[Rfam]
RNA sequence: CUGAUGGGGCCUCGCGAACGCCCCGUGAGGCGUCAGCCCAAGUUUCGCAUGUUUCCGCACGAAGAGGACGCAUGCCAUG
Number, nucleotide and partner (000 for none) at each position: 001c000002u000003g000004a000005u025006g024007g023008g022009g021010c020011c000012u000013c000014g000015c000016g000017a000018a000019c000020g010021c009022c008023c007024c006025g005026u000027g000028a000029g000030g000031c000032g000033u000034c000035a000036g000037c000038c000039c000040a000041a000042g000043u000044u000045u000046c000047g075048c074049a073050u072051g071052u070053u000054u000055c000056c000057g000058c000059a000060c000061g000062a000063a000064g000065a000066g000067g000068a000069c000070g052071c051072a050073u049074g048075c047076c000077a000078u000079g000

About this RNA:
The family of this 79-nucleotide sequence from Cribrihabitans marinus is "chrB-a RNA".